Shown here is an 82-nucleotide RNA from Cnephaeus nilssonii, a member of the family "mir-574 microRNA precursor family".

[Rfam]
RNA sequence: AGGCCCUAAGAGAGAGGCAGAGUCUGAUACCCAGCCUCUGUGGCAGCUGUUGAUUAGCCUGUUGCCUCUCUCUUUCUCUCCC
Numbered sequence: 001a002g003g004c005c006c007u008a009a010g011a012g013a014g015a016g017g018c019a020g021a022g023u024c025u026g027a028u029a030c031c032c033a034g035c036c037u038c039u040g041u042g043g044c045a046g047c048u049g050u051u052g053a054u055u056a057g058c059c060u061g062u063u064g065c066c067u068c069u070c071u072c073u074u075u076c077u078c079u080c081c082c
Base pairs, nucleotide, nucleotide: 008074009073010072011071012070013069014068015067016066017065018064019063020062022060024057025056026055027054028053032049033048034047035046